RNA sequence: GGUCACGAGCUGGUGUAUAUUCUGAAUCUAAAGUUGCUUAUUACUACUUUAGCUCUAGAAUGACACUGAGACCUG
Numbered sequence: 001g002g003u004c005a006c007g008a009g010c011u012g013g014u015g016u017a018u019a020u021u022c023u024g025a026a027u028c029u030a031a032a033g034u035u036g037c038u039u040a041u042u043a044c045u046a047c048u049u050u051a052g053c054u055c056u057a058g059a060a061u062g063a064c065a066c067u068g069a070g071a072c073c074u075g
Base pairs, nucleotide, nucleotide: 001073002072003071004070
Dot-bracket structure: ((((.................................................................))))..